[Rfam]
RNA sequence: CUGGGCUAUGGUGAUAUGUACCCCAAGACCUGGUCGGGCAUGGUGGUGGGGGCUCUGUGUGCGCUGGCCGGGGUGCUCACCAUCGUCAUGCCCGUGCCCGUCAUUGUCAAUAAC
Numbered sequence: 001c002u003g004g005g006c007u008a009u010g011g012u013g014a015u016a017u018g019u020a021c022c023c024c025a026a027g028a029c030c031u032g033g034u035c036g037g038g039c040a041u042g043g044u045g046g047u048g049g050g051g052g053c054u055c056u057g058u059g060u061g062c063g064c065u066g067g068c069c070g071g072g073g074u075g076c077u078c079a080c081c082a083u084c085g086u087c088a089u090g091c092c093c094g095u096g097c098c099c100g101u102c103a104u105u106g107u108c109a110a111u112a113a114c
Base pairs, nucleotide, nucleotide: 002113004111008107009106010105011104013102014101015100018097019096020095021094037077038076039075040074050062